The family of this 135-nucleotide RNA sequence from Syntrophomonas wolfei is "c-di-AMP riboswitch aptamer (ydaO/yuaA leader)". Rfam links the family to the GO terms regulation of gene expression and cyclic-di-AMP binding.
[Rfam]
Nucleotides: 135
Stems, first nucleotide, its partner, number of pairs: 012119003018035006037114005046053002054100003062075004078094004
Number, partner (000 for none) and nucleotide at each position: 001000a002000u003000u004000a005000g006000a007000u008000u009000c010000a011000u012119g013118c014117c015000g016000a017000a018035u019034c020033c021032a022031g023030u024000u025000a026000a027000a028000u029000a030023a031022c032021u033020g034019g035018a036000a037114c038113g039112g040111g041110g042000g043000a044000a045000c046053c047052a048000a049000u050000u051000u052047u053046g054100g055099g056098g057000u058000g059000a060000a061000u062075c063074c064073g065072g066000c067000u068000u069000u070000u071000g072065c073064u074063g075062g076000u077000a078094g079093g080092g081091c082000a083000a084000u085000c086000c087000c088000c089000u090000u091081g092080c093079c094078c095000g096000a097000a098056u099055c100054c101000g102000u103000c104000a105000g106000c107000u108000a109000a110041c111040c112039u113038c114037g115000c116000a117014g118013g119012c120000u121000u122000u123000u124000g125000g126000g127000g128000g129000a130000g131000g132000g133000u134000a135000u